Rfam assigns this 75-nucleotide sequence from Alligator mississippiensis to the family "Mammalian CPEB3 ribozyme". The organism belongs to Alligator, within Eukaryota.
[Rfam]
RNA sequence: AUAGCAACAUACAGCCACAGUAGAAGCGCUCAUGUCACGGCCCUGUCACAUUCUAACGAAUCUGUGAAUUCUGCU
Numbered sequence: 001a002u003a004g005c006a007a008c009a010u011a012c013a014g015c016c017a018c019a020g021u022a023g024a025a026g027c028g029c030u031c032a033u034g035u036c037a038c039g040g041c042c043c044u045g046u047c048a049c050a051u052u053c054u055a056a057c058g059a060a061u062c063u064g065u066g067a068a069u070u071c072u073g074c075u
Stems, first nucleotide, its partner, number of pairs: 014041003019075007026038001028036001047064002050061004